Description: The family of this 103-nucleotide sequence from Paenibacillus nuruki is "TPP riboswitch aptamer (THI element)". It scores 78 bits against the family's covariance model. Its family is annotated with thiamine pyrophosphate binding in the Gene Ontology.
[Rfam]
RNA sequence: UGAUUUCACUAGGGGAGCCUGUUGGCUGAGACGAAAAUGGAUUUUCGGACCCUUGGAACCUGAUCUGGAUUAUACUAGCGGAGGGAAGUGGAGGCUGAAUUUU
Numbered sequence: 001u002g003a004u005u006u007c008a009c010u011a012g013g014g015g016a017g018c019c020u021g022u023u024g025g026c027u028g029a030g031a032c033g034a035a036a037a038u039g040g041a042u043u044u045u046c047g048g049a050c051c052c053u054u055g056g057a058a059c060c061u062g063a064u065c066u067g068g069a070u071u072a073u074a075c076u077a078g079c080g081g082a083g084g085g086a087a088g089u090g091g092a093g094g095c096u097g098a099a100u101u102u103u
Stems, first nucleotide, its partner, number of pairs: 006091005011053004017026003033046005059084003065078004
The source organism's lineage runs through Bacteria, Bacillota, Bacilli, Paenibacillaceae and Paenibacillus.